The family of this 368-nucleotide sequence from Beutenbergia cavernae is "transfer-messenger RNA".
The base pairs follow the family's consensus structure, which is taken from published work.
The family's RNA type in Rfam is non-coding RNA gene.
RNA sequence: GGGGGUGAUCGGUUUCGACGACGGUCGUCGUUCCAGGGGAAGCGGGUCGAGGAUGCAUGGUUAUCUCGUUAACGCUCCAUGCAAACCCAUAGGUGCCGAUUCCAAGCGCACCGACUUCGCUCUCGCCGCCUGAGCAAGAGUAGAAGUCCGUCAGUCCCGGAGUGCUUCCGACCGGGGUCCUGGCGUCAUCAAGGAAGCCACUGCCUGUAGUCCUCGUCAUCGGGGCUGCCGGAACAACUAGGUGACUGGGCCCGUCAGCGAGGUGUCUGCGCCAUCGCUGGGGCCGAGCAGAACAGCAGCAGACUGCACCCGGAGAAGCCCUGGCUCAAUACCGUCGGACGCGGGUUCGAUUCCCGCCACCUCCACCA
Number, nucleotide and partner (000 for none) at each position: 001g364002g363003g362004g361005g360006u359007g358008a000009u000010c000011g000012g000013u000014u000015u000016c000017g000018a000019c337020g336021a335022c334023g333024g332025u331026c000027g000028u328029c000030g327031u000032u000033c324034c323035a322036g321037g320038g319039g000040a000041a000042g000043c312044g311045g310046g309047u308048c068049g067050a066051g065052g064053a000054u083055g082056c081057a080058u079059g078060g077061u000062u000063a000064u052065c051066u050067c049068g048069u000070u000071a000072a000073c000074g000075c000076u000077c060078c059079a058080u057081g056082c055083a054084a000085a000086c000087c000088c000089a000090u000091a000092g000093g000094u000095g000096c000097c000098g000099a000100u000101u000102c000103c000104a000105a000106g000107c000108g000109c000110a000111c000112c000113g000114a000115c000116u000117u000118c000119g000120c000121u146122c000123u144124c143125g000126c000127c000128g000129c000130c000131u000132g000133a000134g000135c000136a000137a000138g000139a000140g000141u000142a000143g124144a123145a000146g121147u000148c000149c185150g184151u183152c182153a181154g180155u000156c176157c175158c174159g173160g000161a000162g000163u000164g198165c197166u196167u195168c194169c193170g000171a000172c000173c159174g158175g157176g156177g000178u000179c000180c154181u153182g152183g151184c150185g149186u000187c000188a000189u000190c000191a000192a000193g169194g168195a167196a166197g165198c164199c000200a000201c000202u000203g000204c232205c231206u000207g229208u228209a227210g226211u225212c224213c000214u000215c000216g247217u000218c000219a000220u000221c242222g000223g000224g212225g211226c210227u209228g208229c207230c000231g205232g204233a000234a000235c000236a000237a000238c000239u000240a000241g000242g221243u000244g000245a000246c000247u216248g000249g285250g284251c283252c282253c281254g000255u000256c280257a279258g278259c000260g000261a000262g273263g272264u000265g304266u303267c302268u301269g000270c000271g000272c263273c262274a000275u000276c000277g000278c258279u257280g256281g253282g252283g251284c250285c249286g000287a000288g000289c000290a000291g000292a000293a000294c000295a000296g000297c000298a000299g000300c000301a268302g267303a266304c265305u000306g000307c000308a047309c046310c045311c044312g043313g000314a000315g000316a000317a000318g000319c038320c037321c036322u035323g034324g033325c000326u000327c030328a028329a000330u000331a025332c024333c023334g022335u021336c020337g019338g000339a000340c000341g357342c356343g355344g354345g353346u000347u000348c000349g000350a000351u000352u000353c345354c344355c343356g342357c341358c007359a006360c005361c004362u003363c002364c001365a000366c000367c000368a000

Gene Ontology term of the family: RNA catabolic process. For this family Rfam cites "BRUCE: a program for the detection of transfer-messenger RNA genes in nucleotide sequences" (Laslett et al., Nucleic Acids Res, 2002).